[Rfam]
This 91-nucleotide RNA sequence from Prunus yedoensis belongs to the Rfam family "MIR6288 microRNA precursor family". Its family is annotated with miRNA-mediated post-transcriptional gene silencing and RISC complex in the Gene Ontology. The match comes from Rfam's covariance-model search (75 bits).

RNA sequence: CCAAAACUAGCCACUUGUUAUUUUUUAAUUGGUUCUUAGUGUGUUGAAAAUUUCUAAAACAAAUUAGAAAAUAACAAUUAACUAGUUUUGA
Numbered sequence: 001c002c003a004a005a006a007c008u009a010g011c012c013a014c015u016u017g018u019u020a021u022u023u024u025u026u027a028a029u030u031g032g033u034u035c036u037u038a039g040u041g042u043g044u045u046g047a048a049a050a051u052u053u054c055u056a057a058a059a060c061a062a063a064u065u066a067g068a069a070a071a072u073a074a075c076a077a078u079u080a081a082c083u084a085g086u087u088u089u090g091a
Stems, first nucleotide, its partner, number of pairs: 002090009013079001015077016032060003036057004